Overview
Shown here is a 76-nucleotide RNA sequence from Solanum tuberosum, a member of the family "Small nucleolar RNA R16". By type it is a C/D-box small nucleolar RNA. Rfam links the family to the GO terms nucleolus and RNA processing. Rfam 15.1 lists 884 matches to the family in 222 species. Lineage of the source: Eukaryota > Viridiplantae > Gunneridae > Solanaceae > Solanum. On this family, see Galardi et al., Mol Cell Biol 2002: "Purified box C/D snoRNPs are able to reproduce site-specific 2'-O-methylation of target RNA in vitro".

RNA sequence: UUUGGCAAAUGACGAUUCACUGUAAAUACUGAAUAAUCAUGUCGAUUAUUUACUCCGCUUAUUAUCUGAUGCCAUU
Number, nucleotide and partner (000 for none) at each position: 001u000002u000003u074004g073005g072006c071007a070008a000009a000010u000011g000012a000013c000014g000015a000016u000017u000018c000019a000020c000021u000022g000023u000024a000025a000026a000027u000028a000029c000030u000031g000032a000033a000034u000035a000036a000037u000038c000039a000040u000041g000042u000043c000044g000045a000046u000047u000048a000049u000050u000051u000052a000053c000054u000055c000056c000057g000058c000059u000060u000061a000062u000063u000064a000065u000066c000067u000068g000069a000070u007071g006072c005073c004074a003075u000076u000